[Rfam]
RNA sequence: GUGCGUUGCAAGUUCCCGAGAGGAUUUGUCUUUGACAAAGAUGCCUUGUAACCGAAUAUUAUUAGGGGGAAUACAUUAUG
Number, nucleotide and partner (000 for none) at each position: 001g000002u000003g000004c000005g000006u000007u000008g000009c000010a000011a000012g000013u071014u070015c069016c068017c067018g000019a000020g047021a046022g045023g044024a000025u039026u038027u037028g036029u035030c000031u000032u000033u000034g000035a029036c028037a027038a026039a025040g000041a000042u000043g000044c023045c022046u021047u020048g000049u000050a000051a000052c066053c065054g000055a000056a000057u000058a000059u000060u000061a000062u000063u000064a000065g053066g052067g017068g016069g015070a014071a013072u000073a000074c000075a000076u000077u000078a000079u000080g000